The record is a 107-nucleotide RNA, which matches "engA RNA" in Rfam. Pairs were carried over by alignment from the consensus structure, which is taken from published work. It is annotated as a cis-regulatory element.
RNA sequence: UCCCUGAAUGUAAUCGAGGGAGUGACUCUUGCCAAAAGAGCGAGGGCCGGAGCAAGGUCAGCUUCGGCAAAUUAUUAACUUGGAUGCAGGGACCACAUCCUUGAAUA
Numbered sequence: 001u002c003c004c005u006g007a008a009u010g011u012a013a014u015c016g017a018g019g020g021a022g023u024g025a026c027u028c029u030u031g032c033c034a035a036a037a038g039a040g041c042g043a044g045g046g047c048c049g050g051a052g053c054a055a056g057g058u059c060a061g062c063u064u065c066g067g068c069a070a071a072u073u074a075u076u077a078a079c080u081u082g083g084a085u086g087c088a089g090g091g092a093c094c095a096c097a098u099c100c101u102u103g104a105a106u107a
Stems, first nucleotide, its partner, number of pairs: 001021005027045006046068008080104001082100005